[Rfam]
RNA sequence: UGUCAUUGGAUACGAAGUGAAUGGGUCAAUAGGCUUUGUCUAAAGCUCCGACCCAGGAAAGUCCCAGGGACACUACACCGCAGAGAUGCGGCCUCGGUAACGAGAGAAUCUUGCGGUUGGAGAGACGCAGUCGGCUGAGACGUGGAGCGAGCUUAUGUGGUCUCUCCGAAUGAUACCAUGGCCGUUGGUAACACAACAGUUAUUCACUUAGAGUCCCUUAACAGAACGGGGCUUACGUUUCCAAUGGC
Number, nucleotide and partner (000 for none) at each position: 001u000002g248003u247004c246005a245006u244007u243008g242009g241010a000011u000012a239013c000014g000015a209016a208017g207018u206019g205020a204021a000022u000023g054024g053025g052026u051027c000028a000029a000030u000031a000032g047033g046034c045035u044036u043037u042038g000039u000040c000041u000042a037043a036044a035045g034046c033047u032048c000049c000050g000051a026052c025053c024054c023055a000056g000057g000058a000059a234060a233061g232062u000063c231064c230065c229066a000067g000068g000069g000070a000071c000072a000073c000074u000075a000076c000077a000078c000079c090080g089081c088082a087083g000084a000085g000086a000087u082088g081089c080090g079091g000092c000093c104094u103095c102096g101097g000098u000099a000100a000101c096102g095103a094104g093105a000106g000107a000108a174109u173110c172111u000112u170113g000114c168115g167116g166117u000118u000119g000120g164121a163122g162123a161124g000125a000126c000127g000128c000129a000130g000131u000132c159133g158134g000135c000136u000137g000138a000139g000140a000141c000142g152143u151144g000145g000146a000147g000148c000149g000150a000151g143152c142153u000154u000155a000156u000157g000158u133159g132160g000161u123162c122163u121164c120165u000166c116167c115168g114169a000170a112171u000172g110173a109174u108175a000176c000177c000178a000179u000180g000181g000182c000183c000184g000185u000186u000187g000188g000189u000190a000191a000192c000193a000194c000195a000196a000197c000198a000199g000200u000201u000202a000203u000204u020205c019206a018207c017208u016209u015210a000211g218212a000213g000214u000215c000216c000217c000218u211219u000220a000221a000222c000223a000224g000225a000226a000227c000228g000229g065230g064231g063232c061233u060234u059235a000236c000237g000238u000239u012240u000241c009242c008243a007244a006245u005246g004247g003248c002